[Rfam]
RNA: DUF3800-IX RNA
RNA sequence: AGGUCAGUCCCGAACUGUCACCGUCAUGGUGAGCGUGCCUAGGACAUCUGGGAUAGGGACUGGCUUCGAC
Numbered sequence: 001a002g003g004u005c006a007g008u009c010c011c012g013a014a015c016u017g018u019c020a021c022c023g024u025c026a027u028g029g030u031g032a033g034c035g036u037g038c039c040u041a042g043g044a045c046a047u048c049u050g051g052g053a054u055a056g057g058g059a060c061u062g063g064c065u066u067c068g069a070c
Stems, first nucleotide, its partner, number of pairs: 001066011016035003019031004038052004